[Rfam]
RNA: THF (Tetrahydrofolate) riboswitch aptamer
Organism: Mediterraneibacter gnavus
RNA sequence: AGCAGAGUAGAAGUAUGUGCGUUAAGUGCCGGUUGGACGGGGAGUUGCCAGCAGGACGAAAAGUGAAUGCUUGCGGUACAUAUUUCGCAUCCCGCUGCU
Numbered sequence: 001a002g003c004a005g006a007g008u009a010g011a012a013g014u015a016u017g018u019g020c021g022u023u024a025a026g027u028g029c030c031g032g033u034u035g036g037a038c039g040g041g042g043a044g045u046u047g048c049c050a051g052c053a054g055g056a057c058g059a060a061a062a063g064u065g066a067a068u069g070c071u072u073g074c075g076g077u078a079c080a081u082a083u084u085u086c087g088c089a090u091c092c093c094g095c096u097g098c099u
Stems, first nucleotide, its partner, number of pairs: 001099005010086010020075003026057002029055002032052005040092003044088001061072004